[Rfam]
RNA sequence: ACAUAUACUGAGUGGCUAUAUUAUUAUGAUCUCUGAACGCAUAAUAAUAUGGCCACUCAGUGUAUAU
Numbered sequence: 001a002c003a004u005a006u007a008c009u010g011a012g013u014g015g016c017u018a019u020a021u022u023a024u025u026a027u028g029a030u031c032u033c034u035g036a037a038c039g040c041a042u043a044a045u046a047a048u049a050u051g052g053c054c055a056c057u058c059a060g061u062g063u064a065u066a067u
Stems, first nucleotide, its partner, number of pairs: 004064014019049010
Shown here is a 67-nucleotide sequence from Cnephaeus nilssonii, a member of the family "mir-9256 microRNA precursor family". Lineage of the source: Eukaryota > Chordata > Theria > Laurasiatheria > Cnephaeus.